[Rfam]
RNA sequence: UGUCUCCUCCACCCUUCUCCUUUGGUGUGGAUUUCAGCCCGAGGCUUCAUCGCUUCGGGUUUUUUUAU
Numbered sequence: 001u002g003u004c005u006c007c008u009c010c011a012c013c014c015u016u017c018u019c020c021u022u023u024g025g026u027g028u029g030g031a032u033u034u035c036a037g038c039c040c041g042a043g044g045c046u047u048c049a050u051c052g053c054u055u056c057g058g059g060u061u062u063u064u065u066u067a068u
Base pairs, nucleotide, nucleotide: 008031009030010029011028012027013025014024036061037060038059039058040057041056042055043054
Annotation: This 68-nucleotide RNA from Janthinobacterium sp. 17J80-10 belongs to the Rfam family "Betaproteobacteria toxic small RNA". A reference for the family is Kimelman et al. (2012), "A vast collection of microbial genes that are toxic to bacteria", Genome Res. Rfam 15.1 lists 951 matches to the family in 508 species. Overexpression in amino aid rich medium attenuates growth, suggesting role in repressing amino acid intake and metabolism. The match comes from Rfam's covariance-model search (53 bits). The family's consensus secondary structure was predicted with WAR.